[Rfam]
RNA sequence: ACGACCCGUGCGGGAGAGCCUCGGCAGCAGUCAUGUCGAGCACCGAAGGAGCAAGCCUCCCCGCCAAUCUCUCAGGUACGCGUACCGCUCGGGUGAG
Numbered sequence: 001a002c003g004a005c006c007c008g009u010g011c012g013g014g015a016g017a018g019c020c021u022c023g024g025c026a027g028c029a030g031u032c033a034u035g036u037c038g039a040g041c042a043c044c045g046a047a048g049g050a051g052c053a054a055g056c057c058u059c060c061c062c063g064c065c066a067a068u069c070u071c072u073c074a075g076g077u078a079c080g081c082g083u084a085c086c087g088c089u090c091g092g093g094u095g096a097g
Stems, first nucleotide, its partner, number of pairs: 006092003010088004020040007042077003045073002049071003055064002
Glycine riboswitch aptamer: a 97-nucleotide sequence from Microbacterium sp. Root180.
It scores 68 bits against the family's covariance model.
Gene Ontology term of the family: glycine biosynthetic process.
Taxonomically the source falls in Microbacterium (Bacteria, Actinomycetota, Micrococcales, Microbacteriaceae).
Clan: Glycine riboswitch clan.